[Rfam]
RNA sequence: AUAUACACUGAGUGGCCAGAUUAGUAUGCAUUCAGAUAGCAUACUAAUCUGGCCACUCAGUGUAUUU
Number, nucleotide and partner (000 for none) at each position: 001a000002u000003a000004u064005a063006c062007a061008c060009u059010g058011a057012g056013u055014g054015g053016c052017c051018a000019g049020a048021u047022u046023a045024g044025u043026a042027u041028g040029c000030a000031u000032u000033c000034a000035g000036a000037u000038a000039g000040c028041a027042u026043a025044c024045u023046a022047a021048u020049c019050u000051g017052g016053c015054c014055a013056c012057u011058c010059a009060g008061u007062g006063u005064a004065u000066u000067u000

Source information
This 67-nucleotide RNA sequence from Pipistrellus kuhlii belongs to the Rfam family "mir-9256 microRNA precursor family". The match comes from Rfam's covariance-model search (88 bits). Rfam 15.1 lists 31,772 matches to the family in 5 species.